[Rfam]
Annotation:
This 372-nucleotide RNA sequence from Limnohabitans sp. 103DPR2 belongs to the Rfam family "Bacterial RNase P class A". Rfam classes the family as a ribozyme. Ribonuclease P (RNase P) is a ubiquitous endoribonuclease, found in archaea, bacteria and eukarya as well as chloroplasts and mitochondria. Its best characterised activity is the generation of mature 5'-ends of tRNAs by cleaving the 5'-leader elements of precursor-tRNAs. Cellular RNase Ps are ribonucleoproteins. The family's consensus secondary structure is taken from published work.
RNA sequence: GAAGCCUGCCAGACCGUCGCUGGUGCAAGCUGCAAAGCCAUGGCGAAAGAUUUUCUUUGGCCAUGGGCCGAAAGGCCGCACUGGAGGAACGUCCGGACUGCACAGGACAGCGUAGGAGGUAACACCUCUCCACCGAAAGGCCGCAAGGCAACAAGGUGAGGAUUAGAGCAACAGAGACGAGCCGAUUCAGUUCGGGUGAAACGGGCAAUCUCUACGCGCAGCAAUACCAAAUAGGCACACGUUGAUCUGGUUCCGGAGAGUGUGCGGGUAGGUAGCACCGAGCCGAGUGGGCAACCCUCGGCCCAGAGUAAUGGCGGUCACAUUGAGGGCAACUUCAAUGCACAGAAUCCGGCUUAUCGGUAGGCUUCACAC
Numbered sequence: 001g002a003a004g005c006c007u008g009c010c011a012g013a014c015c016g017u018c019g020c021u022g023g024u025g026c027a028a029g030c031u032g033c034a035a036a037g038c039c040a041u042g043g044c045g046a047a048a049g050a051u052u053u054u055c056u057u058u059g060g061c062c063a064u065g066g067g068c069c070g071a072a073a074g075g076c077c078g079c080a081c082u083g084g085a086g087g088a089a090c091g092u093c094c095g096g097a098c099u100g101c102a103c104a105g106g107a108c109a110g111c112g113u114a115g116g117a118g119g120u121a122a123c124a125c126c127u128c129u130c131c132a133c134c135g136a137a138a139g140g141c142c143g144c145a146a147g148g149c150a151a152c153a154a155g156g157u158g159a160g161g162a163u164u165a166g167a168g169c170a171a172c173a174g175a176g177a178c179g180a181g182c183c184g185a186u187u188c189a190g191u192u193c194g195g196g197u198g199a200a201a202c203g204g205g206c207a208a209u210c211u212c213u214a215c216g217c218g219c220a221g222c223a224a225u226a227c228c229a230a231a232u233a234g235g236c237a238c239a240c241g242u243u244g245a246u247c248u249g250g251u252u253c254c255g256g257a258g259a260g261u262g263u264g265c266g267g268g269u270a271g272g273u274a275g276c277a278c279c280g281a282g283c284c285g286a287g288u289g290g291g292c293a294a295c296c297c298u299c300g301g302c303c304c305a306g307a308g309u310a311a312u313g314g315c316g317g318u319c320a321c322a323u324u325g326a327g328g329g330c331a332a333c334u335u336c337a338a339u340g341c342a343c344a345g346a347a348u349c350c351g352g353c354u355u356a357u358c359g360g361u362a363g364g365c366u367u368c369a370c371a372c
Stems, first nucleotide, its partner, number of pairs: 001368010011357001012319007020084007089355001091353001093352005098221004105253004110217005115129005130160001131158004161212002166210002168206002182195004225274004235265006246257004282302006289296002